[Rfam]
RNA sequence: CCUUGCUGUGUUGUAGCAGCACAUAAUGGUUUGUUGGUUGUACGGAGAUGCAAGCCAUACUGUGCUGCUGCAAAAACACAAGG
Numbered sequence: 001c002c003u004u005g006c007u008g009u010g011u012u013g014u015a016g017c018a019g020c021a022c023a024u025a026a027u028g029g030u031u032u033g034u035u036g037g038u039u040g041u042a043c044g045g046a047g048a049u050g051c052a053a054g055c056c057a058u059a060c061u062g063u064g065c066u067g068c069u070g071c072a073a074a075a076a077c078a079c080a081a082g083g
Stems, first nucleotide, its partner, number of pairs: 001083005013071011026058009
Notes:
This 83-nucleotide RNA sequence from Lepisosteus oculatus belongs to the Rfam family "mir-15 microRNA precursor family". The family's consensus secondary structure was predicted with RNAalifold. The family is grouped with related families in Rfam's "mir-15 clan".